[Rfam]
RNA sequence: CCUUCAAUGUAGUCACCCCUUUCGAGGUGAUUGAUAC
Numbered sequence: 001c002c003u004u005c006a007a008u009g010u011a012g013u014c015a016c017c018c019c020u021u022u023c024g025a026g027g028u029g030a031u032u033g034a035u036a037c
Base pairs, nucleotide, nucleotide: 010033011032012031013030014029015028016027017026019024
RNA: CRISPR RNA direct repeat element
Organism: Desulfotalea psychrophila